Nucleotides: 253
Base pairs, nucleotide, nucleotide: 001226002225003224004223006221007220010199011198012197013196015194017159018158019157020156021155022154023153024152026149027148028147035058036057039054040053041052042051043050066128067127068126069125070124071123072122079094080093102120103119105117169183171181201214202213203212204211232253233252234251235250236249237248238247239246240245
Number, partner (000 for none) and nucleotide at each position: 001226g002225c003224a004223a005000u006221a007220g008000u009000a010199c011198g012197g013196a014000a015194a016000a017159c018158u019157c020156a021155a022154g023153g024152g025000u026149g027148g028147u029000c030000g031000g032000c033000a034000u035058u036057c037000u038000a039054c040053c041052c042051c043050u044000a045000u046000a047000g048000a049000a050043a051042g052041g053040g054039g055000g056000u057036g058035g059000u060000g061000c062000c063000g064000u065000u066128g067127a068126c069125a070124g071123u072122a073000u074000u075000c076000g077000a078000a079094u080093c081000a082000u083000u084000g085000a086000u087000g088000u089000u090000u091000g092000c093080g094079a095000u096000a097000a098000c099000u100000u101000u102120c103119g104000c105117a106000g107000g108000u109000c110000u111000g112000a113000u114000c115000g116000u117105u118000u119103c120102g121000a122072u123071a124070c125069u126068g127067u128066c129000a130000u131000a132000u133000c134000a135000u136000c137000a138000a139000a140000a141000g142000a143000a144000g145000u146000a147028a148027u149026c150000c151000a152024c153023c154022c155021u156020u157019g158018a159017g160000u161000u162000g163000a164000c165000g166000a167000c168000g169183a170000c171181u172000g173000g174000g175000u176000g177000g178000a179000u180000u181171a182000u183169u184000u185000u186000c187000u188000g189000c190000c191000u192000a193000c194015u195000g196013u197012c198011c199010g200000a201214u202213c203212c204211c205000c206000u207000u208000g209000a210000a211204g212203g213202g214201a215000a216000c217000c218000g219000u220007c221006u222000a223004u224003u225002g226001c227000a228000c229000g230000a231000c232253c233252g234251a235250g236249g237248g238247u239246g240245u241000u242000g243000c244000c245240g246239c247238a248237c249236c250235u251234u252233c253232g